[Rfam]
RNA: chrB-a RNA
RNA sequence: CCCAUGGGGACAGCGCGAACGCCCCGUGAGGCCCCAAGCCAGAGGUUCGCAUGUUUGCCUUGACCGAGGAGACAUGCUCUUG
Numbered sequence: 001c002c003c004a005u006g007g008g009g010a011c012a013g014c015g016c017g018a019a020c021g022c023c024c025c026g027u028g029a030g031g032c033c034c035c036a037a038g039c040c041a042g043a044g045g046u047u048c049g050c051a052u053g054u055u056u057g058c059c060u061u062g063a064c065c066g067a068g069g070a071g072a073c074a075u076g077c078u079c080u081u082g
Stems, first nucleotide, its partner, number of pairs: 005026005049077006